[Rfam]
RNA: Vibrio regulatory RNA of OmpA
RNA sequence: GUAGUUAGCAGAGCAUUAAGAGUUUCACAGGCCGUCAAACUUGUUUUCUUACUGUUGCUACUAAUUAACGCUGCUUUUUCUUAUUAACUCCUAUGUUUGUAUCCGCCCAGAACACUUUUGUUCUGGGCUUUUUUUA
Numbered sequence: 001g002u003a004g005u006u007a008g009c010a011g012a013g014c015a016u017u018a019a020g021a022g023u024u025u026c027a028c029a030g031g032c033c034g035u036c037a038a039a040c041u042u043g044u045u046u047u048c049u050u051a052c053u054g055u056u057g058c059u060a061c062u063a064a065u066u067a068a069c070g071c072u073g074c075u076u077u078u079u080c081u082u083a084u085u086a087a088c089u090c091c092u093a094u095g096u097u098u099g100u101a102u103c104c105g106c107c108c109a110g111a112a113c114a115c116u117u118u119u120g121u122u123c124u125g126g127g128c129u130u131u132u133u134u135u136a
Stems, first nucleotide, its partner, number of pairs: 001069002003066003006060006018050004031045001033043002105128009